[Rfam]
RNA: Small nucleolar RNA snoR109
RNA sequence: UUGCUAUAGCUAUAUGAAUAUAAUUGAGAAGUUUACUGGCCGAUUGUUCUAAAUGUGUUGACAUAUCUGCUUACCGAACUUCUAACAUUU
Numbered sequence: 001u002u003g004c005u006a007u008a009g010c011u012a013u014a015u016g017a018a019u020a021u022a023a024u025u026g027a028g029a030a031g032u033u034u035a036c037u038g039g040c041c042g043a044u045u046g047u048u049c050u051a052a053a054u055g056u057g058u059u060g061a062c063a064u065a066u067c068u069g070c071u072u073a074c075c076g077a078a079c080u081u082c083u084a085a086c087a088u089u090u
Base pairs, nucleotide, nucleotide: 027083028082029081030080031079032078033077038071039070040069042067043066044065046062047061048060